Record summary: A member of the RNA family "TPP riboswitch aptamer (THI element)" from Peptostreptococcus stomatis, 106 nucleotides long.

RNA sequence: UUUAAUAAGAAGGGGAGCUGAUAAAUUGGCUGAGAAAAGGAUGUGAGCCUUGACCCUAGAACCUGAUUUGGAUAAUGCCAACGUAGGAAGAAUAUAUAAUAGGAUU
Numbered sequence: 001u002u003u004a005a006u007a008a009g010a011a012g013g014g015g016a017g018c019u020g021a022u023a024a025a026u027u028g029g030c031u032g033a034g035a036a037a038a039g040g041a042u043g044u045g046a047g048c049c050u051u052g053a054c055c056c057u058a059g060a061a062c063c064u065g066a067u068u069u070g071g072a073u074a075a076u077g078c079c080a081a082c083g084u085a086g087g088a089a090g091a092a093u094a095u096a097u098a099a100u101a102g103g104a105u106u
Stems, first nucleotide, its partner, number of pairs: 006094002011057004016051001017030005038050003062087004068081004